[Rfam]
RNA sequence: CCACUUGAAGUGAGAGUUAGAUGGAACUGAACCACCUCCGUUACAGCCGAUUGCAUGUUGAUCUGGGGUUCAGUUUCCUCUAAUAUCUCACUUUGAAUGG
Numbered sequence: 001c002c003a004c005u006u007g008a009a010g011u012g013a014g015a016g017u018u019a020g021a022u023g024g025a026a027c028u029g030a031a032c033c034a035c036c037u038c039c040g041u042u043a044c045a046g047c048c049g050a051u052u053g054c055a056u057g058u059u060g061a062u063c064u065g066g067g068g069u070u071c072a073g074u075u076u077c078c079u080c081u082a083a084u085a086u087c088u089c090a091c092u093u094u095g096a097a098u099g100g
Stems, first nucleotide, its partner, number of pairs: 005096004011090004016084006023077008032068002
Dot-bracket structure: ....((((..((((.((((((.((((((((.((.................................)).)))))))).))))))..))))..))))....
MIR2275 microRNA precursor family: a 100-nucleotide RNA from Triticum aestivum. Gene Ontology terms of the family: miRNA-mediated post-transcriptional gene silencing and RISC complex. Rfam 15.1 lists 785 matches to the family in 111 species. Pairs were carried over by alignment from the consensus structure, which was predicted with RNAalifold. A search with the family's covariance model found it, with a score of 68 bits.